RNA sequence: AUAUACACUUAGUGGCCAGAUUAUUAUGUAUUCACAGAUCAUAAUAAUCUGGCCACUAAGUGUAUAG
Numbered sequence: 001a002u003a004u005a006c007a008c009u010u011a012g013u014g015g016c017c018a019g020a021u022u023a024u025u026a027u028g029u030a031u032u033c034a035c036a037g038a039u040c041a042u043a044a045u046a047a048u049c050u051g052g053c054c055a056c057u058a059a060g061u062g063u064a065u066a067g
Stems, first nucleotide, its partner, number of pairs: 004064014019049010